[Rfam]
RNA sequence: UGAGUCGGUCGGGUGGCCGCGGCACGACGUGUCGAGGAAAGUCGGGACUCCACCGGGCAGGGUGCUGGCGAGAGCCAGGUGGGGGUGACCUCACGAACCAGUGCAACAGAGAGCAGACCGCCGAUGGACCCCCGGGUCACAGGUGAGGGUGAAACGGUGCGGUAAGAGCGCACCAGCGUGUCGGGCGACCGGCACGGCUCGGCAAACUCCACCCGGAGCAAGGUCAAGCAGGGGGACGAGCGGCCCGUUCCACUCCCCCGGGUAGGCCGCACAGAUGGAUGGCCACCGGGUGCCUCGGCACCCACAGAAUCCCGCUUACAGACCGACUCACCAU
Numbered sequence: 001u002g003a004g005u006c007g008g009u010c011g012g013g014u015g016g017c018c019g020c021g022g023c024a025c026g027a028c029g030u031g032u033c034g035a036g037g038a039a040a041g042u043c044g045g046g047a048c049u050c051c052a053c054c055g056g057g058c059a060g061g062g063u064g065c066u067g068g069c070g071a072g073a074g075c076c077a078g079g080u081g082g083g084g085g086u087g088a089c090c091u092c093a094c095g096a097a098c099c100a101g102u103g104c105a106a107c108a109g110a111g112a113g114c115a116g117a118c119c120g121c122c123g124a125u126g127g128a129c130c131c132c133c134g135g136g137u138c139a140c141a142g143g144u145g146a147g148g149g150u151g152a153a154a155c156g157g158u159g160c161g162g163u164a165a166g167a168g169c170g171c172a173c174c175a176g177c178g179u180g181u182c183g184g185g186c187g188a189c190c191g192g193c194a195c196g197g198c199u200c201g202g203c204a205a206a207c208u209c210c211a212c213c214c215g216g217a218g219c220a221a222g223g224u225c226a227a228g229c230a231g232g233g234g235g236a237c238g239a240g241c242g243g244c245c246c247g248u249u250c251c252a253c254u255c256c257c258c259c260g261g262g263u264a265g266g267c268c269g270c271a272c273a274g275a276u277g278g279a280u281g282g283c284c285a286c287c288g289g290g291u292g293c294c295u296c297g298g299c300a301c302c303c304a305c306a307g308a309a310u311c312c313c314g315c316u317u318a319c320a321g322a323c324c325g326a327c328u329c330a331c332c333a334u
Stems, first nucleotide, its partner, number of pairs: 001330010011319001012287007020034006039317003043314005048218004055246004060214005065078005079094001081092004095209002101207002103203002118148002120144003125141002127138004156174006176198001177196008222268004232259004236254001238250004

A member of the RNA family "Bacterial RNase P class A" from Ilumatobacter fluminis, 334 nucleotides long. From the family's description: Ribonuclease P (RNase P) is a ubiquitous endoribonuclease, found in archaea, bacteria and eukarya as well as chloroplasts and mitochondria. A search with the family's covariance model found it, with a score of 222 bits.